[Rfam]
RNA sequence: GUCACACCUUAAUUUUCGUUCCUUGCUUCCGCAGAUUGGUGACUGGUCUAACAGUCGGAGGCUGAUUAACCCGUAAGGAGCAGUAAUG
Numbered sequence: 001g002u003c004a005c006a007c008c009u010u011a012a013u014u015u016u017c018g019u020u021c022c023u024u025g026c027u028u029c030c031g032c033a034g035a036u037u038g039g040u041g042a043c044u045g046g047u048c049u050a051a052c053a054g055u056c057g058g059a060g061g062c063u064g065a066u067u068a069a070c071c072c073g074u075a076a077g078g079a080g081c082a083g084u085a086a087u088g
Stems, first nucleotide, its partner, number of pairs: 018081007025062006034048002